[Rfam]
RNA sequence: AGAGUCGGCCAUGUCGUCGCGGCAUCACCUGUGGUGUCGAGGAAAGUCCGGGCUCCAUAGGGCAGAACGCCAGGUAACCCCUGGGAGGCGCGAGCCUACGGAAAGUGCAACAGAGAGUAGACCGCCCACGGCUCGUCAUCGACACCGUGGGUAAGGGUGAAAGGGUGCGGUAAGAGCGCACCGCGCCACCGGCAACGGUGAGCGGCACGGUAAACCCCGUUCGGAGCAAGACCAAAUAGGAGGACGACGUGCGGCCCGCAUAGUCCUCGGGUAGGUCGCAUGAGGUGCACGGCGACGUGCAUCCCAGAUGAAUGACGACACACGACAGAACCCGGCUUAUCGGCCGACUCUCUCU
Numbered sequence: 001a002g003a004g005u006c007g008g009c010c011a012u013g014u015c016g017u018c019g020c021g022g023c024a025u026c027a028c029c030u031g032u033g034g035u036g037u038c039g040a041g042g043a044a045a046g047u048c049c050g051g052g053c054u055c056c057a058u059a060g061g062g063c064a065g066a067a068c069g070c071c072a073g074g075u076a077a078c079c080c081c082u083g084g085g086a087g088g089c090g091c092g093a094g095c096c097u098a099c100g101g102a103a104a105g106u107g108c109a110a111c112a113g114a115g116a117g118u119a120g121a122c123c124g125c126c127c128a129c130g131g132c133u134c135g136u137c138a139u140c141g142a143c144a145c146c147g148u149g150g151g152u153a154a155g156g157g158u159g160a161a162a163g164g165g166u167g168c169g170g171u172a173a174g175a176g177c178g179c180a181c182c183g184c185g186c187c188a189c190c191g192g193c194a195a196c197g198g199u200g201a202g203c204g205g206c207a208c209g210g211u212a213a214a215c216c217c218c219g220u221u222c223g224g225a226g227c228a229a230g231a232c233c234a235a236a237u238a239g240g241a242g243g244a245c246g247a248c249g250u251g252c253g254g255c256c257c258g259c260a261u262a263g264u265c266c267u268c269g270g271g272u273a274g275g276u277c278g279c280a281u282g283a284g285g286u287g288c289a290c291g292g293c294g295a296c297g298u299g300c301a302u303c304c305c306a307g308a309u310g311a312a313u314g315a316c317g318a319c320a321c322a323c324g325a326c327a328g329a330a331c332c333c334g335g336c337u338u339a340u341c342g343g344c345c346g347a348c349u350c351u352c353u354c355u
Stems, first nucleotide, its partner, number of pairs: 001351010011340001012320007020039008044338003048335005053226004060257004065222005070084005085099001086097004100217002105215002107211002122156002124152008164182006183206001184204003187200005230277004240268006249261004284303008
The family of this 355-nucleotide sequence from Salinisphaera japonica is "Bacterial RNase P class A". Pairs were carried over by alignment from the consensus structure, which is taken from published work. From the family's description: Ribonuclease P (RNase P) is a ubiquitous endoribonuclease, found in archaea, bacteria and eukarya as well as chloroplasts and mitochondria. It scores 334 bits against the family's covariance model.